The record is a 150-nucleotide sequence from Orenia marismortui, which matches "c-di-AMP riboswitch aptamer (ydaO/yuaA leader)" in Rfam. NCBI's taxonomy places the organism under Bacteria, Bacillati, Bacillota, Halobacteroidaceae, Orenia. Its family is annotated with cyclic-di-AMP binding and regulation of gene expression in the Gene Ontology. The match comes from Rfam's covariance-model search (90 bits).

[Rfam]
RNA sequence: UUACUUUAAUCGCUUAAUUCUAUUAAUUAUAUAGAAGCGGGGGACCCACUUUAUUUUGGGGCGAAUGUAAACUUACUUAUAGUGAGUUUACUAAGGUUACCUUUAACCUGAGUCCGACAGCUAACUUCGUCAGCGUUAAAAAGGGGUAGG
Numbered sequence: 001u002u003a004c005u006u007u008a009a010u011c012g013c014u015u016a017a018u019u020c021u022a023u024u025a026a027u028u029a030u031a032u033a034g035a036a037g038c039g040g041g042g043g044a045c046c047c048a049c050u051u052u053a054u055u056u057u058g059g060g061g062c063g064a065a066u067g068u069a070a071a072c073u074u075a076c077u078u079a080u081a082g083u084g085a086g087u088u089u090a091c092u093a094a095g096g097u098u099a100c101c102u103u104u105a106a107c108c109u110g111a112g113u114c115c116g117a118c119a120g121c122u123a124a125c126u127u128c129g130u131c132a133g134c135g136u137u138a139a140a141a142a143g144g145g146g147u148a149g150g
Stems, first nucleotide, its partner, number of pairs: 011135004018036006037130006047058002059115003067091008094109004